Notes
This 252-nucleotide RNA from Streptomyces colonosanans belongs to the Rfam family "Streptomyces sRNA 4677". Located in the intergenic region between anti-sigma factor SCO4677 gene and a putative regulatory protein gene SCO4676. scr4677 expression requires the SCO4677 activity and scr4677 sRNA itself seem to affect the levels of the SCO4676-associated transcripts. On this family, see Hindra et al., PLoS One 2014: "Complex intra-operonic dynamics mediated by a small RNA in Streptomyces coelicolor". Rfam 15.1 lists 563 matches to the family in 285 species.

RNA sequence: UGCUCCGGUGCCGUCGGCGGUCUUCCCCAAGGAACACGAGUGGGAAAGGAACCGAACCAAGCCCCACCCCUCCCGCCCGUGGCGCACGCUCACUCCCGCGAGUGAACAUCGCCAACUCGGCUGGAUUCGUGACGGGUUGCCUGCCCUACGCUCAGCGCAGCACGGCACAUCAACCCCAGACGCACGACGGCCCUCGCCGGGACGGCAAUCCCACUGCGAGGGCCUGACCACCAAGGAAGUCAGCCCUUCCCG
Dot-bracket structure: ......((((.....((((......................................................))))............((((((....))))))..............(((((...........................)))))................................(((((.(((.((((......))))...))).)))))....))))..(((((......)))))..